[Rfam]
RNA: Small nucleolar RNA snoR77
RNA sequence: AGGCAGCCCCUUUGUUUAAUUCGGUGACAAAGGAGGUGUUGAACUGCUCGUAAAGCGAUUUCUUUUGCUCUUCAGACUUGCUGAGUUGACACUGAAGCUGGUCUAGUAAGCCUAAGUACAUU
Numbered sequence: 001a002g003g004c005a006g007c008c009c010c011u012u013u014g015u016u017u018a019a020u021u022c023g024g025u026g027a028c029a030a031a032g033g034a035g036g037u038g039u040u041g042a043a044c045u046g047c048u049c050g051u052a053a054a055g056c057g058a059u060u061u062c063u064u065u066u067g068c069u070c071u072u073c074a075g076a077c078u079u080g081c082u083g084a085g086u087u088g089a090c091a092c093u094g095a096a097g098c099u100g101g102u103c104u105a106g107u108a109a110g111c112c113u114a115a116g117u118a119c120a121u122u
Stems, first nucleotide, its partner, number of pairs: 002040004007036002009033008062116003067111003074104005080098003085090001